A member of the RNA family "Actinobacteria sRNA Ms_IGR-5" from Pimelobacter simplex, 217 nucleotides long.
RNA sequence: ACACGGGAAAGGAGGUGGUCCGAAGAAUGAGUUCUUUCAGGACGCGUGAGGUGGCUGCGCGCUAGCAGCCCGACGCUGGAUGGGGCGAGCUCGCCUCUGACGAGCUGCCGCCCGAAUGUCGGCUGCGCGCGAAUCUCAACGCAGCCACCCGACCCGCAGGUGCAACCGGGAUCGUCCCCCGGCCUGGUCUCCCGACCACACCUGCGGGUCGCUGCAU
Numbered sequence: 001a002c003a004c005g006g007g008a009a010a011g012g013a014g015g016u017g018g019u020c021c022g023a024a025g026a027a028u029g030a031g032u033u034c035u036u037u038c039a040g041g042a043c044g045c046g047u048g049a050g051g052u053g054g055c056u057g058c059g060c061g062c063u064a065g066c067a068g069c070c071c072g073a074c075g076c077u078g079g080a081u082g083g084g085g086c087g088a089g090c091u092c093g094c095c096u097c098u099g100a101c102g103a104g105c106u107g108c109c110g111c112c113c114g115a116a117u118g119u120c121g122g123c124u125g126c127g128c129g130c131g132a133a134u135c136u137c138a139a140c141g142c143a144g145c146c147a148c149c150c151g152a153c154c155c156g157c158a159g160g161u162g163c164a165a166c167c168g169g170g171a172u173c174g175u176c177c178c179c180c181g182g183c184c185u186g187g188u189c190u191c192c193c194g195a196c197c198a199c200a201c202c203u204g205c206g207g208g209u210c211g212c213u214g215c216a217u
Base pairs, nucleotide, nucleotide: 015058016057017056018055019054060131061130062129065126066125068123069122070121073119074118075117150211151210152209153208154207155206156205157204158203159202160201161200162199166182167181168180169179170178
Description: The source organism's lineage runs through Bacteria, Bacillati, Propionibacteriales, Nocardioidaceae and Pimelobacter. On this family, see Li et al., RNA 2013: "Identification of small RNAs in Mycobacterium smegmatis using heterologous Hfq".